[Rfam]
RNA sequence: AGGUUGGAUUAAUUAUUACAAUAUAGCUGUGAAGUGCUAUAUUGUCUUUUCCCCCUGCUGAAAGCAAUUGUUUCCCACAAUCUCUGUCUAGCUCAAUUCUAUAGUAAGACAGGGACGCUUGGUCUCAAACAU
Numbered sequence: 001a002g003g004u005u006g007g008a009u010u011a012a013u014u015a016u017u018a019c020a021a022u023a024u025a026g027c028u029g030u031g032a033a034g035u036g037c038u039a040u041a042u043u044g045u046c047u048u049u050u051c052c053c054c055c056u057g058c059u060g061a062a063a064g065c066a067a068u069u070g071u072u073u074c075c076c077a078c079a080a081u082c083u084c085u086g087u088c089u090a091g092c093u094c095a096a097u098u099c100u101a102u103a104g105u106a107a108g109a110c111a112g113g114g115a116c117g118c119u120u121g122g123u124c125u126c127a128a129a130c131a132u
Stems, first nucleotide, its partner, number of pairs: 003058002006055002018045010083113004088108002090105001
Dot-bracket structure: ..((.((..........((((((((((........))))))))))........)).))........................((((.(((..............).)).))))...................
The family of this 132-nucleotide sequence from Propithecus coquereli is "Small nucleolar RNA SNORA63". A search with the family's covariance model found it, with a score of 94 bits. On this family, see Mishra and Eliceiri, Proc Natl Acad Sci U S A 1997: "Three small nucleolar RNAs that are involved in ribosomal RNA precursor processing". About the family: E3 belongs to the H/ACA class of snoRNAs and is involved in the processing of eukaryotic pre-rRNA and has regions of complementarity to 18S rRNA. E3 is encoded in introns in the gene for protein synthesis initiation factor 4AII. Rfam 15.1 lists 1,279 matches to the family in 601 species.